Shown here is a 107-nucleotide RNA from Niallia circulans, a member of the family "SAM riboswitch aptamer (S box leader)". A search with the family's covariance model found it, with a score of 93 bits. Rfam's curators write: The SAM riboswitch is found upstream of a number of genes which code for proteins involved in methionine or cysteine biosynthesis in Gram-positive bacteria.

RNA sequence: UACUUAUCAAGAGAGAUUGAGGGAACAGGCCCGAUGACAUCCAGCAACCUCCUUUCCUAAAGGAAGGUGCUAACUCCUGCAGAAUGACUUAUUCUGAAAGAUAAGAU
Number, nucleotide and partner (000 for none) at each position: 001u000002a000003c105004u104005u103006a102007u101008c100009a000010a000011g000012a000013g042014a000015g041016a040017u039018u000019g000020a000021g032022g031023g030024a000025a000026c079027a078028g077029g076030c023031c022032c021033g000034a000035u000036g000037a000038c000039a017040u016041c015042c013043a071044g070045c069046a068047a000048c067049c066050u064051c063052c062053u061054u000055u000056c000057c000058u000059a000060a000061a053062g052063g051064a050065a000066g049067g048068u046069g045070c044071u043072a000073a000074c000075u099076c029077c028078u027079g026080c096081a095082g094083a093084a092085u091086g000087a000088c000089u000090u000091a085092u084093u083094c082095u081096g080097a000098a000099a075100g008101a007102u006103a005104a004105g003106a000107u000